[Rfam]
RNA sequence: UUGCACAGUGAACACCCAAGUGUUCUUUAUAGUUCCCUUGGCUUUGACUCUGUGCUAGAGCAAUGUCUGUUCUUUUCCUCUGCAUUGAAAGGACUGUUUAACCUUUUAAAUGUAUUCAUAAAGUUAGCACAUUA
Number, nucleotide and partner (000 for none) at each position: 001u000002u000003g055004c054005a053006c052007a051008g050009u000010g049011a000012a000013c046014a045015c000016c041017c040018a039019a038020g037021u000022g035023u000024u000025c032026u031027u000028u000029a000030u000031a026032g025033u000034u000035c022036c000037c020038u019039u018040g017041g016042c000043u000044u000045u014046g013047a000048c000049u010050c008051u007052g006053u005054g004055c003056u000057a073058g072059a071060g070061c069062a068063a000064u000065g000066u000067c000068u062069g061070u060071u059072c058073u057074u000075u000076u000077c000078c000079u120080c000081u118082g117083c112084a111085u110086u109087g107088a106089a105090a104091g103092g102093a000094c000095u000096g000097u000098u000099u000100a000101a000102c092103c091104u090105u089106u088107u087108a000109a086110a085111u084112g083113u000114a000115u000116u000117c082118a081119u000120a079121a000122a000123g000124u000125u000126a000127g000128c000129a000130c000131a000132u000133u000134a000
Shown here is a 134-nucleotide RNA from Myotis lucifugus, a member of the family "Small nucleolar RNA SNORA22". ACA22 is a member of the H/ACA class of snoRNA that guide the sites of modification of uridines to pseudouridines. By type it is an H/ACA-box small nucleolar RNA. The sequence is in the family's curated seed alignment. Rfam links the family to the GO terms RNA processing and nucleolus.